The record is a 253-nucleotide RNA sequence from Oceanobacillus halophilus, which matches "Group I catalytic intron" in Rfam.

RNA sequence: ACAAGACGGUAAAUAAGAAAUGCCGCUCUAAGUAGUAAUACUUAGAUGAAAACUCCGUGAAUUCGGUGGAACCCCAAACCAAGCUUCAGUUUGCGGAUGGUGGGCAAUACCGAGCCAAGCCUAAUGAAUUGGUAGAUAGUAGUUAGGAAGGUGUAACGAUCAGGUGGUGAGGAACCAGACCAAUAACCCACCCACGAGCGCGGGGCAUCCUAAUGGGAUGAAGAUAUGAUCUGAGCUUUAUGGAGACAUAGAG
Numbered sequence: 001a002c003a004a005g006a007c008g009g010u011a012a013a014u015a016a017g018a019a020a021u022g023c024c025g026c027u028c029u030a031a032g033u034a035g036u037a038a039u040a041c042u043u044a045g046a047u048g049a050a051a052a053c054u055c056c057g058u059g060a061a062u063u064c065g066g067u068g069g070a071a072c073c074c075c076a077a078a079c080c081a082a083g084c085u086u087c088a089g090u091u092u093g094c095g096g097a098u099g100g101u102g103g104g105c106a107a108u109a110c111c112g113a114g115c116c117a118a119g120c121c122u123a124a125u126g127a128a129u130u131g132g133u134a135g136a137u138a139g140u141a142g143u144u145a146g147g148a149a150g151g152u153g154u155a156a157c158g159a160u161c162a163g164g165u166g167g168u169g170a171g172g173a174a175c176c177a178g179a180c181c182a183a184u185a186a187c188c189c190a191c192c193c194a195c196g197a198g199c200g201c202g203g204g205g206c207a208u209c210c211u212a213a214u215g216g217g218a219u220g221a222a223g224a225u226a227u228g229a230u231c232u233g234a235g236c237u238u239u240a241u242g243g244a245g246a247c248a249u250a251g252a253g
Stems, first nucleotide, its partner, number of pairs: 005027001007025005031042003053205004058200002063113006073104004114152002120146001127140001129138001156232001158231005208218004238251005
NCBI's taxonomy places the organism under Bacteria, Bacillati, Bacillota, Bacilli, Oceanobacillus. Rfam links the family to the GO term Group I intron splicing.